[Rfam]
The record is a 145-nucleotide sequence from Rhizobium subbaraonis, which matches "radC RNA" in Rfam. The family's consensus secondary structure is taken from published work. Taxonomically the source falls in Rhizobium (Bacteria, Pseudomonadati, Pseudomonadota, Rhizobiaceae).
RNA sequence: AUGCUGGCCUCAUAUGUCGCUGAUGUCUUCAGCACAUGCCAGCAGUCCCGGUCUUUUACGACUGCGCCACGGUUUCCACGUGGUCGACCGAUCCAGUCCGCUUCGCAUCAUUCUUUGCGGACAAACGCCUCCCAGCGUUCGAUGC
Dot-bracket structure: ..........(((.....(((((.....)))))..)))...((((((..[[[[......))))))((((((.......)))))).]]]]...........................(((....(((((......)))))...)))